[Rfam]
RNA: transfer-messenger RNA
RNA sequence: GGGGCUGAUUCUGGAUUCGACGGGAUUAGCGAAGCCCAAGGUGCACGUCGAGGUGCGGUAGGCCUCGUAAAUAAACCGCAAAAAAUAGUCGCAAACGACGAACAAUACGCACUAGCAGCUUAAUAACCUGCGUAGAGCCUUAUCGCCUCAGCUUUCGCUCGUAAGACGAGGAUCACGAUAAGUCACCCCAAACGAGAUCGUGUGGAAGCCGCAGCUAUAGGAUCGAAGCACUAAAUUGAAUAUAGCUAGUUUGCUAAUGGCGUGUCUGUCCGCAGUUAGCUUACGAAAUUAAAGACGAGACUAAACGUGUAGUGCUGACGGUAGAGUAAUUUCGGACGGGGGUUCAAAUCCCCCCAGCUCCACCA
Numbered sequence: 001g002g003g004g005c006u007g008a009u010u011c012u013g014g015a016u017u018c019g020a021c022g023g024g025a026u027u028a029g030c031g032a033a034g035c036c037c038a039a040g041g042u043g044c045a046c047g048u049c050g051a052g053g054u055g056c057g058g059u060a061g062g063c064c065u066c067g068u069a070a071a072u073a074a075a076c077c078g079c080a081a082a083a084a085a086u087a088g089u090c091g092c093a094a095a096c097g098a099c100g101a102a103c104a105a106u107a108c109g110c111a112c113u114a115g116c117a118g119c120u121u122a123a124u125a126a127c128c129u130g131c132g133u134a135g136a137g138c139c140u141u142a143u144c145g146c147c148u149c150a151g152c153u154u155u156c157g158c159u160c161g162u163a164a165g166a167c168g169a170g171g172a173u174c175a176c177g178a179u180a181a182g183u184c185a186c187c188c189c190a191a192a193c194g195a196g197a198u199c200g201u202g203u204g205g206a207a208g209c210c211g212c213a214g215c216u217a218u219a220g221g222a223u224c225g226a227a228g229c230a231c232u233a234a235a236u237u238g239a240a241u242a243u244a245g246c247u248a249g250u251u252u253g254c255u256a257a258u259g260g261c262g263u264g265u266c267u268g269u270c271c272g273c274a275g276u277u278a279g280c281u282u283a284c285g286a287a288a289u290u291a292a293a294g295a296c297g298a299g300a301c302u303a304a305a306c307g308u309g310u311a312g313u314g315c316u317g318a319c320g321g322u323a324g325a326g327u328a329a330u331u332u333c334g335g336a337c338g339g340g341g342g343u344u345c346a347a348a349u350c351c352c353c354c355c356a357g358c359u360c361c362a363c364c365a
Stems, first nucleotide, its partner, number of pairs: 001361007021334008034322003040316003044309005049067005054080006112135003115131004139182006146171004152165003158196005200231004213247006249284002253280006260273003264301004268296003338354005